[Rfam]
RNA sequence: CCCCUUUUCAAACACCCCCACGCCCCCUAUAUCUAACCUGUCUCCUUCGGGGGACUAUGGGCAUAAACGUGCGUGAAAUAAGCGGAUCGGACCCGGGGGCGGUACCCGGCGGCUCCACCAAACAUCCCUCGUUGGGGGCAGAUGGGGCCGAAAUAGGAUCGACGAACGUGUAAAGACGUGGCUUUGUCCCGGUGAGCUACCACCGUUAUCGGUGCGAAAAGUACAAUUGCCAACGACAAUCGUGCUCCGAUCGCUCUGGCUGCCUAAGCAGUCCGAAAGAUCGAAAAUUAAGUCCUUGGGCUUUGCAGCCUAAGGCGGGGUUCGGAGGUACCUGGCAACAGAAACCUCCACU
Numbered sequence: 001c002c003c004c005u006u007u008u009c010a011a012a013c014a015c016c017c018c019c020a021c022g023c024c025c026c027c028u029a030u031a032u033c034u035a036a037c038c039u040g041u042c043u044c045c046u047u048c049g050g051g052g053g054a055c056u057a058u059g060g061g062c063a064u065a066a067a068c069g070u071g072c073g074u075g076a077a078a079u080a081a082g083c084g085g086a087u088c089g090g091a092c093c094c095g096g097g098g099g100c101g102g103u104a105c106c107c108g109g110c111g112g113c114u115c116c117a118c119c120a121a122a123c124a125u126c127c128c129u130c131g132u133u134g135g136g137g138g139c140a141g142a143u144g145g146g147g148c149c150g151a152a153a154u155a156g157g158a159u160c161g162a163c164g165a166a167c168g169u170g171u172a173a174a175g176a177c178g179u180g181g182c183u184u185u186g187u188c189c190c191g192g193u194g195a196g197c198u199a200c201c202a203c204c205g206u207u208a209u210c211g212g213u214g215c216g217a218a219a220a221g222u223a224c225a226a227u228u229g230c231c232a233a234c235g236a237c238a239a240u241c242g243u244g245c246u247c248c249g250a251u252c253g254c255u256c257u258g259g260c261u262g263c264c265u266a267a268g269c270a271g272u273c274c275g276a277a278a279g280a281u282c283g284a285a286a287a288u289u290a291a292g293u294c295c296u297u298g299g300g301c302u303u304u305g306c307a308g309c310c311u312a313a314g315g316c317g318g319g320g321u322u323c324g325g326a327g328g329u330a331c332c333u334g335g336c337a338a339c340a341g342a343a344a345c346c347u348c349c350a351c352u
Base pairs, nucleotide, nucleotide: 040055041054042053043052044051059189060188061187062186063185069182070181071179072178073177074176083168084167087165088164089163093109094108095107096106097105110150111149112148113147114146115145116144190205191204192203193202196215197214199213200212201211318333319332320331321330324349325348326347327346328345329344
RNA: Alphaproteobacteria transfer-messenger RNA